The family of this 95-nucleotide sequence from Microbacterium sp. RG1 is "Glycine riboswitch aptamer". It scores 66 bits against the family's covariance model. Its family is annotated with glycine biosynthetic process in the Gene Ontology.

RNA sequence: ACGACCGGUGCGGGAGAGCCUCGGAGAUCUUGUCCGAGCACCGAAGGAGCAAGCCUCCCCGCCAAUCUCUCAGGUAUGCGUACCGCCCCGGUCGG
Numbered sequence: 001a002c003g004a005c006c007g008g009u010g011c012g013g014g015a016g017a018g019c020c021u022c023g024g025a026g027a028u029c030u031u032g033u034c035c036g037a038g039c040a041c042c043g044a045a046g047g048a049g050c051a052a053g054c055c056u057c058c059c060c061g062c063c064a065a066u067c068u069c070u071c072a073g074g075u076a077u078g079c080g081u082a083c084c085g086c087c088c089c090g091g092u093c094g095g
Base pairs, nucleotide, nucleotide: 006090007089008088010086011085012084013083020038021037022036023035024034025033040075041074042073043071044070047069048068049067053062054061
About this RNA
Lineage of the source: Bacteria > Actinomycetota > Actinomycetes > Micrococcales > Microbacterium. Rfam describes the family as follows. This family represents the bacterial glycine riboswitch.